Rfam assigns this 102-nucleotide RNA sequence from Melghirimyces profundicolus to the family "Purine riboswitch aptamer". A search with the family's covariance model found it, with a score of 84 bits. The base pairs follow the family's consensus structure, which is taken from published work. The organism belongs to Melghirimyces, within Bacteria.
RNA sequence: AACCGAUUGACUUUGCAUUCUCAUAUAUGCCCGGGAAUAAGGCUCGGGCGUCUCUACCCGGAAACCGUAAAUUUCCGGACUAUGGGAAAUGCCUUGCCAUGG
Dot-bracket structure: .................((((((((...(((((((.......)))))))........(((((((.......)))))))..))))))))..............